RNA sequence: UAAUUUUGUCCCAAGUCAAACUUCUCUAACUUUGAAAAAAGUCUGUAGAAAAAUAUAUUAACAUCUACAAUACCAAAUAAAUGCACUAUCAAGACAUAUUUCAUGUUGGAUUUAAUGAAACUAAUUUGUUGUUGAUCUUGGUGCACUUUUCUAUAAACUUGGUCAAAGUUAGAGAAGUUUGACUUAGGACAAAACUAA
Numbered sequence: 001u002a003a004u005u006u007u008g009u010c011c012c013a014a015g016u017c018a019a020a021c022u023u024c025u026c027u028a029a030c031u032u033u034g035a036a037a038a039a040a041g042u043c044u045g046u047a048g049a050a051a052a053a054u055a056u057a058u059u060a061a062c063a064u065c066u067a068c069a070a071u072a073c074c075a076a077a078u079a080a081a082u083g084c085a086c087u088a089u090c091a092a093g094a095c096a097u098a099u100u101u102c103a104u105g106u107u108g109g110a111u112u113u114a115a116u117g118a119a120a121c122u123a124a125u126u127u128g129u130u131g132u133u134g135a136u137c138u139u140g141g142u143g144c145a146c147u148u149u150u151c152u153a154u155a156a157a158c159u160u161g162g163u164c165a166a167a168g169u170u171a172g173a174g175a176a177g178u179u180u181g182a183c184u185u186a187g188g189a190c191a192a193a194a195c196u197a198a
Stems, first nucleotide, its partner, number of pairs: 005193005011187001013185014031167005046153007056143003060139002063136003067132003074128005
RNA: MIR1435 microRNA precursor family